A member of the RNA family "BsrC" from Enterococcus italicus, 89 nucleotides long. The organism belongs to Enterococcus italicus, within Bacteria. From the family's description: The 301 nucleotide sequence from Kouji Nakamura has been trimmed to a highly conserved ~85 nucleotide long core to form this family. On this family, see Saito et al., Gene 2008: "Novel small RNA-encoding genes in the intergenic regions of Bacillus subtilis".
[Rfam]
RNA sequence: UCUCAUUUAAACAGUGUGUUCCCAUAACCUACUAACACACCCUUGCAGCCCUGAAGCUGCGCCAGUUGGAUCAAAUUUCUUAAAAAUAU
Numbered sequence: 001u002c003u004c005a006u007u008u009a010a011a012c013a014g015u016g017u018g019u020u021c022c023c024a025u026a027a028c029c030u031a032c033u034a035a036c037a038c039a040c041c042c043u044u045g046c047a048g049c050c051c052u053g054a055a056g057c058u059g060c061g062c063c064a065g066u067u068g069g070a071u072c073a074a075a076u077u078u079c080u081u082a083a084a085a086a087u088a089u
Base pairs, nucleotide, nucleotide: 038068039067042065043064044061045060046059047058048057049056